[Rfam]
RNA sequence: GAAGGUUGCGAUGAGGAUAAAAAAGCUCCCUCUUCUGAACUUUCAAAUUGGGGACACCUUGCUGGCAGAAUCGAACCUAUGACUAAUUAGUGCCACUGCUGAGUAA
Numbered sequence: 001g002a003a004g005g006u007u008g009c010g011a012u013g014a015g016g017a018u019a020a021a022a023a024a025g026c027u028c029c030c031u032c033u034u035c036u037g038a039a040c041u042u043u044c045a046a047a048u049u050g051g052g053g054a055c056a057c058c059u060u061g062c063u064g065g066c067a068g069a070a071u072c073g074a075a076c077c078u079a080u081g082a083c084u085a086a087u088u089a090g091u092g093c094c095a096c097u098g099c100u101g102a103g104u105a106a
Stems, first nucleotide, its partner, number of pairs: 006106004
The record is a 106-nucleotide sequence from Nyssa sinensis, which matches "Small nucleolar RNA R30/Z108" in Rfam. From the family's description: snoR30 is a C/D box small nucleolar RNA which acts as a methylation guide for 18S ribosomal RNA in plants. The literature on the family includes a 2002 paper in Curr Biol by Marker et al., "Experimental RNomics. Identification of 140 Candidates for Small Non-Messenger RNAs in the Plant Arabidopsis thaliana". The family is grouped with related families in Rfam's "SNORD100 clan". Pairs were carried over by alignment from the consensus structure, which was predicted with PFOLD.